[Rfam]
RNA sequence: GGAUUCCCGUCGAGAAAGAACUAGCCAUUCACUCGUAGCGAGUCUUGGAGGGCUAAUGGUAACAUUAGCCUUUAAGCGUAGACAGUUAGGUGGCGCGCCGAAAGCUAAAUGGUUGAAGGGAUUGAGCUCCAUAAUGUUAGUAAAUCGAGAGGGCUGAUGCCUUAAGCACAGCAGAAAGCUACAUUUUAUCCAUCGUUAAAGGCAAGAAGGAUAGAACCUCUCUGGAGUCAGAGACCU
Numbered sequence: 001g002g003a004u005u006c007c008c009g010u011c012g013a014g015a016a017a018g019a020a021c022u023a024g025c026c027a028u029u030c031a032c033u034c035g036u037a038g039c040g041a042g043u044c045u046u047g048g049a050g051g052g053c054u055a056a057u058g059g060u061a062a063c064a065u066u067a068g069c070c071u072u073u074a075a076g077c078g079u080a081g082a083c084a085g086u087u088a089g090g091u092g093g094c095g096c097g098c099c100g101a102a103a104g105c106u107a108a109a110u111g112g113u114u115g116a117a118g119g120g121a122u123u124g125a126g127c128u129c130c131a132u133a134a135u136g137u138u139a140g141u142a143a144a145u146c147g148a149g150a151g152g153g154c155u156g157a158u159g160c161c162u163u164a165a166g167c168a169c170a171g172c173a174g175a176a177a178g179c180u181a182c183a184u185u186u187u188a189u190c191c192a193u194c195g196u197u198a199a200a201g202g203c204a205a206g207a208a209g210g211a212u213a214g215a216a217c218c219u220c221u222c223u224g225g226a227g228u229c230a231g232a233g234a235c236c237u
Stems, first nucleotide, its partner, number of pairs: 011035004018030003022205001024203002038086002042083004046078002048073011123231001124229001126228006147222006153179003158173003184216008193207002
A member of the RNA family "Group II catalytic intron D1-D4-6" from Peribacillus loiseleuriae, 237 nucleotides long. For this family Rfam cites "Control of branch-site choice by a group II intron" (Chu et al., EMBO J, 2001). NCBI's taxonomy places the organism under Bacteria, Bacillota, Bacilli, Bacillaceae, Peribacillus. From the family's description: Group II introns are found in rRNA, tRNA and mRNA of organelles in fungi, plants and protists, and also in mRNA in bacteria.